[Rfam]
RNA: Purine riboswitch aptamer
RNA sequence: AAUUAAAACGUAAUCACUGUCGGUAUAAUUGUUGGAGAAUGGCCAACGAGUUCCUACCCUUCUCCCAAGAGAUGGACUACCGAUAGUGUUUUGAUAUUU
Numbered sequence: 001a002a003u004u005a006a007a008a009c010g011u012a013a014u015c016a017c018u019g020u021c022g023g024u025a026u027a028a029u030u031g032u033u034g035g036a037g038a039a040u041g042g043c044c045a046a047c048g049a050g051u052u053c054c055u056a057c058c059c060u061u062c063u064c065c066c067a068a069g070a071g072a073u074g075g076a077c078u079a080c081c082g083a084u085a086g087u088g089u090u091u092u093g094a095u096a097u098u099u
Stems, first nucleotide, its partner, number of pairs: 018085008029049007058075002061072004